RNA sequence: UAUGUCCUCCUCUGUAAGUCGCUUUGGAUAAAAGCGUCUGCUAAAUUCAAUGUA
Numbered sequence: 001u002a003u004g005u006c007c008u009c010c011u012c013u014g015u016a017a018g019u020c021g022c023u024u025u026g027g028a029u030a031a032a033a034g035c036g037u038c039u040g041c042u043a044a045a046u047u048c049a050a051u052g053u054a
Stems, first nucleotide, its partner, number of pairs: 013043001014041003020036006
The record is a 54-nucleotide RNA from Larimichthys crocea, which matches "UnaL2 LINE 3' element" in Rfam. Taxonomically the source falls in Larimichthys (Eukaryota, Neoteleostei, Acanthomorphata, Eupercaria). The eel long interspersed element (LINE) UnaL2 and its partner short interspersed element (SINE) share a conserved 3' tail containing a stem-loop that is critical for their retrotransposition. Presumably, the first step of retrotransposition is the recognition of their 3' tails by UnaL2-encoded reverse transcriptase. The solution structure of a 17-nucleotide RNA derived from the 3' tail of UnaL2 was determined by NMR.